[Rfam]
A member of the RNA family "Group II catalytic intron D1-D4-4" from Candidatus Protofrankia californiensis, 137 nucleotides long.
From the family's description: Group II introns are found in rRNA, tRNA and mRNA of organelles in fungi, plants and protists, and also in mRNA in bacteria.
The source organism's lineage runs through Bacteria, Bacillati, Actinomycetota, Actinomycetes and Protofrankia.
It scores 101 bits against the family's covariance model.
Rfam links the family to the GO term Group II intron splicing.
RNA sequence: UUGCCGGUGGAAGUCCGGUCCGGGUAGCUGCCAGGAGGCCCGGUAGCAGGCUGGCGGCUCGGUCGGGUAACUGACCGGGUCGGAGCCCAGCGUCGAAAGCCCUGCAAGGGGGAGCGACUGGACGGUUCGUAGCAUGA
Numbered sequence: 001u002u003g004c005c006g007g008u009g010g011a012a013g014u015c016c017g018g019u020c021c022g023g024g025u026a027g028c029u030g031c032c033a034g035g036a037g038g039c040c041c042g043g044u045a046g047c048a049g050g051c052u053g054g055c056g057g058c059u060c061g062g063u064c065g066g067g068u069a070a071c072u073g074a075c076c077g078g079g080u081c082g083g084a085g086c087c088c089a090g091c092g093u094c095g096a097a098a099g100c101c102c103u104g105c106a107a108g109g110g111g112g113a114g115c116g117a118c119u120g121g122a123c124g125g126u127u128c129g130u131a132g133c134a135u136g137a
Base pairs, nucleotide, nucleotide: 020043021042022041023040024039050091051090052089053088054087055082056081057080058079059078060077064073066071100112101111102110103109114130115129116128